RNA sequence: GGUCAUAAAUUGGAGGUCAUAGAAGAAGUGCCCAUGGCAUGGCCCUAUCAAAUUCCAAUGAAUCUGCAAAUUCUACU
Numbered sequence: 001g002g003u004c005a006u007a008a009a010u011u012g013g014a015g016g017u018c019a020u021a022g023a024a025g026a027a028g029u030g031c032c033c034a035u036g037g038c039a040u041g042g043c044c045c046u047a048u049c050a051a052a053u054u055c056c057a058a059u060g061a062a063u064c065u066g067c068a069a070a071u072u073c074u075a076c077u
Base pairs, nucleotide, nucleotide: 013045015044016043017042018041021077022076024074025073026072027071028040029039030038049066050065052063053062054061055060
Rfam assigns this 77-nucleotide sequence from Crocodylus porosus to the family "Mammalian CPEB3 ribozyme".
NCBI's taxonomy places the organism under Eukaryota, Opisthokonta, Vertebrata, Sauria, Crocodylus.
The family's consensus secondary structure is taken from published work.
From the family's description: The mammalian CPEB3 ribozyme is a self cleaving RNA located in the second intron of the CPEB3 gene which belongs to a family of genes regulating messenger RNA polyadenylation.
A search with the family's covariance model found it, with a score of 42 bits.
Rfam links the family to the GO term RNA nuclease activity.